[Rfam]
The family of this 69-nucleotide RNA from Dysgonomonas sp. BGC7 is "DUF805 RNA". The family's consensus secondary structure is taken from published work. NCBI's taxonomy places the organism under Bacteria, Pseudomonadati, Bacteroidota, Bacteroidia, Dysgonomonas. It is annotated as a cis-regulatory element. A search with the family's covariance model found it, with a score of 72 bits.
RNA sequence: AUGAAUUGGAGUUCAGAAACCAGGAAAAAAAACGAGGCGUAUCCGAAAAGCCAAAUGAGUAGGAACUUA
Numbered sequence: 001a002u003g004a005a006u007u008g009g010a011g012u013u014c015a016g017a018a019a020c021c022a023g024g025a026a027a028a029a030a031a032a033c034g035a036g037g038c039g040u041a042u043c044c045g046a047a048a049a050g051c052c053a054a055a056u057g058a059g060u061a062g063g064a065a066c067u068u069a
Stems, first nucleotide, its partner, number of pairs: 006023004036052003043063002